Shown here is a 101-nucleotide RNA sequence from Bacteroidales bacterium 6E, a member of the family "SAM-I/IV (S-adenosyl methionine) riboswitch aptamer".
RNA sequence: CCCCUGCAUUACGAGUUUCCAGUGGGAUGGAACGGCAACCGGGAUGAACACCACGGUGCCAAAACAAUGCGCGGACCGAUGUCCGAAAAAAGUUCACGGGG
Numbered sequence: 001c002c003c004c005u006g007c008a009u010u011a012c013g014a015g016u017u018u019c020c021a022g023u024g025g026g027a028u029g030g031a032a033c034g035g036c037a038a039c040c041g042g043g044a045u046g047a048a049c050a051c052c053a054c055g056g057u058g059c060c061a062a063a064a065c066a067a068u069g070c071g072c073g074g075a076c077c078g079a080u081g082u083c084c085g086a087a088a089a090a091a092g093u094u095c096a097c098g099g100g101g
Stems, first nucleotide, its partner, number of pairs: 006070005015033001017032005034060003039056003042052002046097001072085004

Overview:
Pairs were carried over by alignment from the consensus structure, which is taken from published work. Lineage of the source: Bacteria > Pseudomonadati > Bacteroidota > Bacteroidia > Bacteroidales.